[Rfam]
This 408-nucleotide RNA from Paenibacillus sambharensis belongs to the Rfam family "Bacterial RNase P class A". It scores 293 bits against the family's covariance model. By type it is a ribozyme. The organism belongs to Paenibacillus, within Bacteria. Its family is annotated with tRNA processing, ribonuclease P activity and dimeric ribonuclease P complex in the Gene Ontology.

RNA sequence: AAAGUUUGACAGACAAUCGCCGGCAGCCGCAAGGCUGCGGGAGGAAAGUCCGGGCUCCACAGGGCAGGAUGCUGGAUAACGUCCAGUCAGCGCGAGCUGAAGGAUAGUGCCACAGAAAUGGACCGCCGAUGGCCGGCAUGCCGGCACAGGCAAGGGUGGAACCGUGGUGUAAGAGACCACGAGCGGCAUUGGUGACAAUGCGGCUGGUAAACCCCAUCUGGAGCAAGACCUAAGAGAACGCGGCUGUCCGUGACGGACAGCAGCCUUAGCCCGAGGCGCGUUCGGGUUGGUCGCUUGAGCCGUUCAGCAAUGGACGGCCUAGAUAGAUGAUUGUCACUUCCGCGUGGGAGGGUCGUUCCCGCUUGCACCACUGGAAGUACAGAACCCGGCUUAUGGCAAACUUUCCUA
Numbered sequence: 001a002a003a004g005u006u007u008g009a010c011a012g013a014c015a016a017u018c019g020c021c022g023g024c025a026g027c028c029g030c031a032a033g034g035c036u037g038c039g040g041g042a043g044g045a046a047a048g049u050c051c052g053g054g055c056u057c058c059a060c061a062g063g064g065c066a067g068g069a070u071g072c073u074g075g076a077u078a079a080c081g082u083c084c085a086g087u088c089a090g091c092g093c094g095a096g097c098u099g100a101a102g103g104a105u106a107g108u109g110c111c112a113c114a115g116a117a118a119u120g121g122a123c124c125g126c127c128g129a130u131g132g133c134c135g136g137c138a139u140g141c142c143g144g145c146a147c148a149g150g151c152a153a154g155g156g157u158g159g160a161a162c163c164g165u166g167g168u169g170u171a172a173g174a175g176a177c178c179a180c181g182a183g184c185g186g187c188a189u190u191g192g193u194g195a196c197a198a199u200g201c202g203g204c205u206g207g208u209a210a211a212c213c214c215c216a217u218c219u220g221g222a223g224c225a226a227g228a229c230c231u232a233a234g235a236g237a238a239c240g241c242g243g244c245u246g247u248c249c250g251u252g253a254c255g256g257a258c259a260g261c262a263g264c265c266u267u268a269g270c271c272c273g274a275g276g277c278g279c280g281u282u283c284g285g286g287u288u289g290g291u292c293g294c295u296u297g298a299g300c301c302g303u304u305c306a307g308c309a310a311u312g313g314a315c316g317g318c319c320u321a322g323a324u325a326g327a328u329g330a331u332u333g334u335c336a337c338u339u340c341c342g343c344g345u346g347g348g349a350g351g352g353u354c355g356u357u358c359c360c361g362c363u364u365g366c367a368c369c370a371c372u373g374g375a376a377g378u379a380c381a382g383a384a385c386c387c388g389g390c391u392u393a394u395g396g397c398a399a400a401c402u403u404u405c406c407u408a
Stems, first nucleotide, its partner, number of pairs: 001404008010395002012335007020041002023038006046392003050389005055223004062272004067219005072086005087101001088099004102214002107212002109208003123155002125151003130146002133143001163181006183204002186201006227292004236283006263277005299318008